c-di-GMP-I riboswitch aptamer: an 83-nucleotide RNA sequence from Peribacillus loiseleuriae. It scores 83 bits against the family's covariance model. The organism belongs to Peribacillus, within Bacteria. The family's consensus secondary structure is taken from published work.
RNA sequence: AAACAGAAAAGGCAAACUUAUUGAAAAAUAAGGACGCAAAACUACAGAUCUAAAGUUUUAACUAUGAUGGCUGAGUUGCCUAA
Numbered sequence: 001a002a003a004c005a006g007a008a009a010a011g012g013c014a015a016a017c018u019u020a021u022u023g024a025a026a027a028a029u030a031a032g033g034a035c036g037c038a039a040a041a042c043u044a045c046a047g048a049u050c051u052a053a054a055g056u057u058u059u060a061a062c063u064a065u066g067a068u069g070g071c072u073g074a075g076u077u078g079c080c081u082a083a
Stems, first nucleotide, its partner, number of pairs: 012037002017032006040077004045073003048068003055062002
Dot-bracket structure: ...........((...((((((....))))))...))..((((.((((((....((....))...)))..)))))))......